[Rfam]
The record is an 86-nucleotide RNA sequence from Mediterraneibacter torques, which matches "NiCo (Nickel/Cobalt) riboswitch aptamer" in Rfam. Its Rfam clan is "NiCo_riboswitches". Pairs were carried over by alignment from the consensus structure, which is taken from published work. Its family is annotated with cobalt ion binding and metal ion homeostasis in the Gene Ontology. Rfam's curators put it in the seed alignment. Taxonomically the source falls in Mediterraneibacter torques (Bacteria, Bacillota, Lachnospirales, Lachnospiraceae).
RNA sequence: ACAGUACAAACUGAGCAGACCGUGAUAUCAUAUCAUGGAGUCGGGUCGCAGAUGCGACAGUGGAAUCUUUCAUCCGCGGGACAGUA
Numbered sequence: 001a002c003a004g005u006a007c008a009a010a011c012u013g014a015g016c017a018g019a020c021c022g023u024g025a026u027a028u029c030a031u032a033u034c035a036u037g038g039a040g041u042c043g044g045g046u047c048g049c050a051g052a053u054g055c056g057a058c059a060g061u062g063g064a065a066u067c068u069u070u071c072a073u074c075c076g077c078g079g080g081a082c083a084g085u086a
Base pairs, nucleotide, nucleotide: 010085011084012083013082016080018042019041020040022036023035024034025033026032045058046057047056048055049054060077061076062075063074064073
Dot-bracket structure: .........((((..(.(((.(((((.....)))))...)))..(((((....))))).(((((........)))))..).)))).